[Rfam]
RNA sequence: AUUUGGCUUAGUUAGGAGGCACACAUUAAACCCAGGACCAAAUGUGUCUUCACUGAUGCCUUUGGUCUUUUAAGGCCCUUUUGAGGGGACCCUUUAGCGGUUUUUACCUCAAGUGGUCUCCCAAGCAGCCUUGUACAUUU
Numbered sequence: 001a002u003u004u005g006g007c008u009u010a011g012u013u014a015g016g017a018g019g020c021a022c023a024c025a026u027u028a029a030a031c032c033c034a035g036g037a038c039c040a041a042a043u044g045u046g047u048c049u050u051c052a053c054u055g056a057u058g059c060c061u062u063u064g065g066u067c068u069u070u071u072a073a074g075g076c077c078c079u080u081u082u083g084a085g086g087g088g089a090c091c092c093u094u095u096a097g098c099g100g101u102u103u104u105u106a107c108c109u110c111a112a113g114u115g116g117u118c119u120c121c122c123a124a125g126c127a128g129c130c131u132u133g134u135a136c137a138u139u140u
Base pairs, nucleotide, nucleotide: 004021005020007018008017009016036067037066038065039064040063044059045058046057047056048055071133072132073131074130075129076128080125081124082123083122085121086120087119088118089117090116091115093113